[Rfam]
RNA sequence: AUUGGUCGUCUCUCUUUUACAGGCCGGUCGGAGUUUGGGGGAAAAUCGUGGGUUCAUUAUGUGCGAUCGCCGGUGUCUUGACAAUCGCACUGCCCGUCCCAGUUAUAGUGUCCAAU
Number, nucleotide and partner (000 for none) at each position: 001a116002u115003u000004g113005g112006u000007c110008g109009u108010c000011u000012c000013u000014c000015u102016u101017u000018u000019a000020c000021a000022g098023g097024c096025c000026g000027g000028u000029c000030g000031g000032a000033g000034u000035u000036u000037g000038g000039g079040g078041g077042a076043a000044a000045a000046u000047c000048g000049u000050g000051g000052g064053u063054u000055c000056a000057u000058u000059a000060u000061g000062u000063g053064c052065g000066a000067u000068c000069g000070c000071c000072g000073g000074u000075g000076u042077c041078u040079u039080g000081a000082c000083a000084a000085u000086c000087g000088c000089a000090c000091u000092g000093c000094c000095c000096g024097u023098c022099c000100c000101a016102g015103u000104u000105a000106u000107a000108g009109u008110g007111u000112c005113c004114a000115a002116u001
Shown here is a 116-nucleotide RNA from Frankliniella occidentalis, a member of the family "Potassium channel RNA editing signal". This family represents a group of sequences related to the human potassium channel Kv1.1 hairpin element which directs the efficient modification of an adenosine to inosine by an adenosine deaminase acting on RNA (ADAR). Pairs were carried over by alignment from the consensus structure, which is taken from published work. It scores 53 bits against the family's covariance model. Taxonomically the source falls in Frankliniella (Eukaryota, Opisthokonta, Metazoa, Allotriocarida).